About this RNA
MIR5534 microRNA precursor family: a 102-nucleotide RNA from Oryza sativa. Its family is annotated with miRNA-mediated post-transcriptional gene silencing and RISC complex in the Gene Ontology. NCBI's taxonomy places the organism under Eukaryota, Streptophyta, Liliopsida, Oryzinae, Oryza. The family's consensus secondary structure was predicted with RNAalifold.
RNA sequence: AACUUUAGCGCCUUGACGACAACAGCUAGAAUGGUCGCGGCGACGAAGGAUUGUCCCCCGAUGAGGCCGCCAUUCUAGCUGUUGUCGUCGAGGCGCUAAAGU
Numbered sequence: 001a002a003c004u005u006u007a008g009c010g011c012c013u014u015g016a017c018g019a020c021a022a023c024a025g026c027u028a029g030a031a032u033g034g035u036c037g038c039g040g041c042g043a044c045g046a047a048g049g050a051u052u053g054u055c056c057c058c059c060g061a062u063g064a065g066g067c068c069g070c071c072a073u074u075c076u077a078g079c080u081g082u083u084g085u086c087g088u089c090g091a092g093g094c095g096c097u098a099a100a101g102u
Stems, first nucleotide, its partner, number of pairs: 002102034037067002041063002044060002048056003